[Rfam]
RNA: TD-1 RNA
Organism: Treponema phagedenis
RNA sequence: UUUUAUCUGUCGAGUUUCGGCUUUGAAUUUAAGGUGCCGAAACAUCUCGUGUUGUAUGUGUUUUUGCACUGCAAAAACACUUGAAAAAAGUUUUUUCGAAAUCUGAAGAUUCCUGCAAAACUUUUUAUAGAG
Numbered sequence: 001u002u003u004u005a006u007c008u009g010u011c012g013a014g015u016u017u018c019g020g021c022u023u024u025g026a027a028u029u030u031a032a033g034g035u036g037c038c039g040a041a042a043c044a045u046c047u048c049g050u051g052u053u054g055u056a057u058g059u060g061u062u063u064u065u066g067c068a069c070u071g072c073a074a075a076a077a078c079a080c081u082u083g084a085a086a087a088a089a090g091u092u093u094u095u096u097c098g099a100a101a102u103c104u105g106a107a108g109a110u111u112c113c114u115g116c117a118a119a120a121c122u123u124u125u126u127a128u129a130g131a132g
Base pairs, nucleotide, nucleotide: 012046013045014043015042016041017040018039019038020037021036058080059079060078061077062076063075064074065073085126086125087124088123089122090121091120092119093118095117098113100111101110102109103108